[Rfam]
Notes:
This 80-nucleotide sequence from Mauremys mutica belongs to the Rfam family "mir-27 microRNA precursor family". Lineage of the source: Eukaryota > Chordata > Sauropsida > Cryptodira > Mauremys. A search with the family's covariance model found it, with a score of 81 bits.

Nucleotides: 080
Base pairs, nucleotide, nucleotide: 011070012069013068014067015066016065017064018063019062020061026057027056028055029054030053031052032051
Number, partner (000 for none) and nucleotide at each position: 001000c002000c003000g004000g005000g006000g007000u008000g009000c010000a011070g012069g013068g014067c015066u016065u017064a018063g019062c020061u021000c022000a023000c024000c025000u026057g027056u028055g029054a030053a031052c032051a033000g034000a035000g036000u037000u038000c039000g040000c041000a042000c043000c044000c045000g046000u047000a048000u049000c050000g051032u052031g053030u054029u055028c056027a057026c058000a059000g060000u061020g062019g063018c064017u065016a066015a067014g068013u069012u070011c071000c072000g073000c074000c075000c076000c077000c078000c079000u080000g